This 97-nucleotide RNA sequence from Sus scrofa belongs to the Rfam family "mir-544 microRNA precursor family". For this family Rfam cites "Mammalian microRNAs: experimental evaluation of novel and previously annotated genes" (Chiang et al., Genes Dev, 2010). The match comes from Rfam's covariance-model search (78 bits). Pairs were carried over by alignment from the consensus structure, which was predicted with RNAalifold. The source organism's lineage runs through Eukaryota, Metazoa, Amniota, Suina and Sus.
RNA sequence: AUCACCUAGGGAACUUGUUAAAAUGUAGGUUCUGAUUCAGAGAGUCUGGGAUGUACCCAAGAUUCUGCAUUUCUAACAAGCUCCCAGGUGAGACCCA
Numbered sequence: 001a002u003c004a005c006c007u008a009g010g011g012a013a014c015u016u017g018u019u020a021a022a023a024u025g026u027a028g029g030u031u032c033u034g035a036u037u038c039a040g041a042g043a044g045u046c047u048g049g050g051a052u053g054u055a056c057c058c059a060a061g062a063u064u065c066u067g068c069a070u071u072u073c074u075a076a077c078a079a080g081c082u083c084c085c086a087g088g089u090g091a092g093a094c095c096c097a
Stems, first nucleotide, its partner, number of pairs: 003090003009084003014080007021072003025068005031062003